[Rfam]
RNA sequence: CAUCUGGCGCGCUAGGGUUCCGCAUUCGAUCCGACGGAUCGGCUGGCUGGUCCGAGAGCGGGCGGCCUUGCGCAAGCGGGGUUACACGGCGGGACAAAAGCCCGGGAGAA
Numbered sequence: 001c002a003u004c005u006g007g008c009g010c011g012c013u014a015g016g017g018u019u020c021c022g023c024a025u026u027c028g029a030u031c032c033g034a035c036g037g038a039u040c041g042g043c044u045g046g047c048u049g050g051u052c053c054g055a056g057a058g059c060g061g062g063c064g065g066c067c068u069u070g071c072g073c074a075a076g077c078g079g080g081g082u083u084a085c086a087c088g089g090c091g092g093g094a095c096a097a098a099a100g101c102c103c104g105g106g107a108g109a110a
Stems, first nucleotide, its partner, number of pairs: 007063002010060003015053002020050002022047001023045002026042006064083008085105001087108001091103003
Dot-bracket structure: ......((.(((..((...(((((.((((((.....)))))).)).).)).))....))).))((((((((....)))))))).(.[...(((.......))).)..]..